The record is a 175-nucleotide RNA sequence from Streptomyces sp. ISL-98, which matches "c-di-AMP riboswitch aptamer (ydaO/yuaA leader)" in Rfam. The match comes from Rfam's covariance-model search (64 bits).
[Rfam]
RNA sequence: CAACCGCACUCACUCACUCAAGCGUGGCAGGAGCGGGGGACCCAGGUAAGUACGCCGUUCAUCCGGAUCUGCACGUCGGUCCGGACCGGCUCGGGGUGAAGUCGCGCGAGAGCGCGGCCGGGCAUCUCCAGCCCGAACCCGACAGCUCACCUCGUAGGCGACGGAGAGGAAUUCG
Numbered sequence: 001c002a003a004c005c006g007c008a009c010u011c012a013c014u015c016a017c018u019c020a021a022g023c024g025u026g027g028c029a030g031g032a033g034c035g036g037g038g039g040a041c042c043c044a045g046g047u048a049a050g051u052a053c054g055c056c057g058u059u060c061a062u063c064c065g066g067a068u069c070u071g072c073a074c075g076u077c078g079g080u081c082c083g084g085a086c087c088g089g090c091u092c093g094g095g096g097u098g099a100a101g102u103c104g105c106g107c108g109a110g111a112g113c114g115c116g117g118c119c120g121g122g123c124a125u126c127u128c129c130a131g132c133c134c135g136a137a138c139c140c141g142a143c144a145g146c147u148c149a150c151c152u153c154g155u156a157g158g159c160g161a162c163g164g165a166g167a168g169g170a171a172u173u174c175g
Stems, first nucleotide, its partner, number of pairs: 007160001009158002014032002033155006043093001094140003102117004120134004